[Rfam]
RNA sequence: UGAGGAAAGCAGAAGUGAGAGCUUCUCGCCUUGCGACUAACGUUGUCUGGCUCUACGAUUCAAGUCCUGAGAGGGAUUCUAUUCGUGUGAGUGGGUGUGCGUUAGCAGACCCACUCUUGUUUUUCUCG
Numbered sequence: 001u002g003a004g005g006a007a008a009g010c011a012g013a014a015g016u017g018a019g020a021g022c023u024u025c026u027c028g029c030c031u032u033g034c035g036a037c038u039a040a041c042g043u044u045g046u047c048u049g050g051c052u053c054u055a056c057g058a059u060u061c062a063a064g065u066c067c068u069g070a071g072a073g074g075g076a077u078u079c080u081a082u083u084c085g086u087g088u089g090a091g092u093g094g095g096u097g098u099g100c101g102u103u104a105g106c107a108g109a110c111c112c113a114c115u116c117u118u119g120u121u122u123u124u125c126u127c128g
Stems, first nucleotide, its partner, number of pairs: 011026006028051003033046005090115007098107002
A member of the RNA family "Ribosomal protein L20 leader" from Streptococcus danieliae, 128 nucleotides long. The literature on the family includes a 1994 paper in Prog Nucleic Acid Res Mol Biol by Zengel and Lindahl, "Diverse mechanisms for regulating ribosomal protein synthesis in Escherichia coli". It scores 67 bits against the family's covariance model. Rfam's curators write: This family is a putative r-protein leader autoregulatory structure found in B. subtilis and other low-GC Gram-positive bacteria. It is located in the 5' untranslated regions of mRNAs encoding initiation factor 3 followed by ribosomal proteins L35 and L20 (infC-rpmI-rplT). A Rho-independent transcription terminator structure that is probably involved in regulation is included at the 3' end. The family's consensus secondary structure was predicted with CMfinder.